[Rfam]
RNA sequence: GUGGGCUAUGGAGAUAUCUACCCCAAAACCCUACUAGGAAAAAUAGUUGGAGGUUUGUGCUGUGUUGCUGGAGUGUUGGUGAUAGCCCUGCCUAUUCCCAUCAUUGUGAAUAAC
Numbered sequence: 001g002u003g004g005g006c007u008a009u010g011g012a013g014a015u016a017u018c019u020a021c022c023c024c025a026a027a028a029c030c031c032u033a034c035u036a037g038g039a040a041a042a043a044u045a046g047u048u049g050g051a052g053g054u055u056u057g058u059g060c061u062g063u064g065u066u067g068c069u070g071g072a073g074u075g076u077u078g079g080u081g082a083u084a085g086c087c088c089u090g091c092c093u094a095u096u097c098c099c100a101u102c103a104u105u106g107u108g109a110a111u112a113a114c
Stems, first nucleotide, its partner, number of pairs: 001114002004111001007108005013102003020095001037077002040074001049063001051061001

Annotation: Potassium channel RNA editing signal: a 114-nucleotide sequence from Mola mola. Rfam links the family to the GO term adenosine to inosine editing. Taxonomically the source falls in Mola (Eukaryota, Craniata, Vertebrata, Actinopteri). Pairs were carried over by alignment from the consensus structure, which is taken from published work. It scores 77 bits against the family's covariance model. A reference for the family is Bhalla et al. (2004), "Control of human potassium channel inactivation by editing of a small mRNA hairpin", Nat Struct Mol Biol. The family's RNA type in Rfam is cis-regulatory element.